[Rfam]
RNA: U2 spliceosomal RNA
Organism: Chara braunii
RNA sequence: GUGACUUCUUUGCAUGCUCUUUGGCUAAGAUCAAGUGUAGUUUCUGUUCUGAUCAGUUUAAUAUCUGAUCCGUGGUCCAUAGGACCACACGAUAUUAAAUUAAUAUUUCUGGGCCACGUAGGGGUCAUACCGGUAAGCUUGCUUACUGGACCCCUCCAGUGUUGCCUCUGUAUUGCACUGCAGCAGGCUGAGCGGAGUGCGGCGCAGUUUCA
Numbered sequence: 001g002u003g004a005c006u007u008c009u010u011u012g013c014a015u016g017c018u019c020u021u022u023g024g025c026u027a028a029g030a031u032c033a034a035g036u037g038u039a040g041u042u043u044c045u046g047u048u049c050u051g052a053u054c055a056g057u058u059u060a061a062u063a064u065c066u067g068a069u070c071c072g073u074g075g076u077c078c079a080u081a082g083g084a085c086c087a088c089a090c091g092a093u094a095u096u097a098a099a100u101u102a103a104u105a106u107u108u109c110u111g112g113g114c115c116a117c118g119u120a121g122g123g124g125u126c127a128u129a130c131c132g133g134u135a136a137g138c139u140u141g142c143u144u145a146c147u148g149g150a151c152c153c154c155u156c157c158a159g160u161g162u163u164g165c166c167u168c169u170g171u172a173u174u175g176c177a178c179u180g181c182a183g184c185a186g187g188c189u190g191a192g193c194g195g196a197g198u199g200c201g202g203c204g205c206a207g208u209u210u211c212a
Stems, first nucleotide, its partner, number of pairs: 007030003016025003051070006072088007120155007134145004159205006166197006